A member of the RNA family "mir-8517 microRNA precursor family" from Plutella xylostella, 107 nucleotides long. A search with the family's covariance model found it, with a score of 84 bits. The base pairs follow the family's consensus structure, which was predicted with RNAalifold.
[Rfam]
RNA sequence: UUAUUCAUAAAAAAGUUAGUGAACUGUUCUAUCACUCUCUGGCAGAGAACAAUUUGUUUUUUGACAGAGAGGGACAAAACAGUUCAAUAGCUAAAGCGUCUAAUAAC
Numbered sequence: 001u002u003a004u005u006c007a008u009a010a011a012a013a014a015g016u017u018a019g020u021g022a023a024c025u026g027u028u029c030u031a032u033c034a035c036u037c038u039c040u041g042g043c044a045g046a047g048a049a050c051a052a053u054u055u056g057u058u059u060u061u062u063g064a065c066a067g068a069g070a071g072g073g074a075c076a077a078a079a080c081a082g083u084u085c086a087a088u089a090g091c092u093a094a095a096g097c098g099u100c101u102a103a104u105a106a107c
Base pairs, nucleotide, nucleotide: 001106002105003104004103005102014092015091016090017089018088020086021085022084023083024082025081026080027079028068029067030066032064033063034062048058049057050056051055